[Rfam]
RNA sequence: AUUCUCCUCUCUGCAUUGCCGAUAGUUCGGCAGUAGCCCGCAGCCAGGGUGUAGAGGCUGCCGUGGGCUUUGCCUGCGCCACCCGCCAGUUCGUCUCGGCAUCUUACGGCGAACGCUGCCCACCAGGGCAUUGAUGC
Numbered sequence: 001a002u003u004c005u006c007c008u009c010u011c012u013g014c015a016u017u018g019c020c021g022a023u024a025g026u027u028c029g030g031c032a033g034u035a036g037c038c039c040g041c042a043g044c045c046a047g048g049g050u051g052u053a054g055a056g057g058c059u060g061c062c063g064u065g066g067g068c069u070u071u072g073c074c075u076g077c078g079c080c081a082c083c084c085g086c087c088a089g090u091u092c093g094u095c096u097c098g099g100c101a102u103c104u105u106a107c108g109g110c111g112a113a114c115g116c117u118g119c120c121c122a123c124c125a126g127g128g129c130a131u132u133g134a135u136g137c
Stems, first nucleotide, its partner, number of pairs: 011036004018031005040061006048082001062078007109137003117130005
A member of the RNA family "radC RNA" from Eoetvoesiella caeni, 137 nucleotides long. A search with the family's covariance model found it, with a score of 56 bits. Rfam classes the family as a cis-regulatory element. The organism belongs to Eoetvoesiella, within Bacteria.